RNA sequence: CCUGCCACCGUCCCGGUUCCCACGGACGACCGUAUGGCAGGAGCGGGGGACCCAUUCCGGGCAUCGGAGACGGUGUCCUCGGGGUGAAGCCGGUCAGGGCGCGAGUCCUGGACGGCCGGGUGAUUUCUCCCACCCGAACCCGACAGCUGACCUCGUAGGCGACCGGAGAGGUAGA
Numbered sequence: 001c002c003u004g005c006c007a008c009c010g011u012c013c014c015g016g017u018u019c020c021c022a023c024g025g026a027c028g029a030c031c032g033u034a035u036g037g038c039a040g041g042a043g044c045g046g047g048g049g050a051c052c053c054a055u056u057c058c059g060g061g062c063a064u065c066g067g068a069g070a071c072g073g074u075g076u077c078c079u080c081g082g083g084g085u086g087a088a089g090c091c092g093g094u095c096a097g098g099g100c101g102c103g104a105g106u107c108c109u110g111g112a113c114g115g116c117c118g119g120g121u122g123a124u125u126u127c128u129c130c131c132a133c134c135c136g137a138a139c140c141c142g143a144c145a146g147c148u149g150a151c152c153u154c155g156u157a158g159g160c161g162a163c164c165g166g167a168g169a170g171g172u173a174g175a
Stems, first nucleotide, its partner, number of pairs: 001041007043156006053081001082141003090115003118135004
RNA: c-di-AMP riboswitch aptamer (ydaO/yuaA leader)